[Rfam]
RNA sequence: ACGCUUUGGUAAUCGCUGCAAACUUUGUUUGUAGAGGAAAGUCCAUGCUCGCACAGGCUGAGAUGCCUGUAGUGUUCGUGCCUAGCCAAAAAAUAAGCUAGGGCAGCAAAUAUUGCUGACGGCAGGGAAAAUGCCUAAGUCCUUUGGAUAUGGCAUGAAUACCUUGAAAGUGCCACAGUGACGGAGCCUGUUCAGAAAUGACCAGGGUGGAACGAGGUAAACCCCGCGAGCGAGAAACCCAAAUUUUGGUAGGGGAACUUUCUCUGAGGAACUGAACGAGGAGAAGGACAGAUUUUAUAAUCUGUAGAUAGAUGGUUACCGCCUUUAUACGAGGCCUUUAAAGGUCGUUACAGUACAAAGGAACAGAACAUGGCUUAUAAAG
Numbered sequence: 001a002c003g004c005u006u007u008g009g010u011a012a013u014c015g016c017u018g019c020a021a022a023c024u025u026u027g028u029u030u031g032u033a034g035a036g037g038a039a040a041g042u043c044c045a046u047g048c049u050c051g052c053a054c055a056g057g058c059u060g061a062g063a064u065g066c067c068u069g070u071a072g073u074g075u076u077c078g079u080g081c082c083u084a085g086c087c088a089a090a091a092a093a094u095a096a097g098c099u100a101g102g103g104c105a106g107c108a109a110a111u112a113u114u115g116c117u118g119a120c121g122g123c124a125g126g127g128a129a130a131a132u133g134c135c136u137a138a139g140u141c142c143u144u145u146g147g148a149u150a151u152g153g154c155a156u157g158a159a160u161a162c163c164u165u166g167a168a169a170g171u172g173c174c175a176c177a178g179u180g181a182c183g184g185a186g187c188c189u190g191u192u193c194a195g196a197a198a199u200g201a202c203c204a205g206g207g208u209g210g211a212a213c214g215a216g217g218u219a220a221a222c223c224c225c226g227c228g229a230g231c232g233a234g235a236a237a238c239c240c241a242a243a244u245u246u247u248g249g250u251a252g253g254g255g256a257a258c259u260u261u262c263u264c265u266g267a268g269g270a271a272c273u274g275a276a277c278g279a280g281g282a283g284a285a286g287g288a289c290a291g292a293u294u295u296u297a298u299a300a301u302c303u304g305u306a307g308a309u310a311g312a313u314g315g316u317u318a319c320c321g322c323c324u325u326u327a328u329a330c331g332a333g334g335c336c337u338u339u340a341a342a343g344g345u346c347g348u349u350a351c352a353g354u355a356c357a358a359a360g361g362a363a364c365a366g367a368a369c370a371u372g373g374c375u376u377a378u379a380a381a382g
Stems, first nucleotide, its partner, number of pairs: 004382003008320007016034006039376003043373005048234005053070006076229005081102006103120001104118006121224002124164003132155004139149003170222002172218003187206004192201003238254003258287007288305006322361005328355003
RNA: Bacterial RNase P class B
Organism: Niallia taxi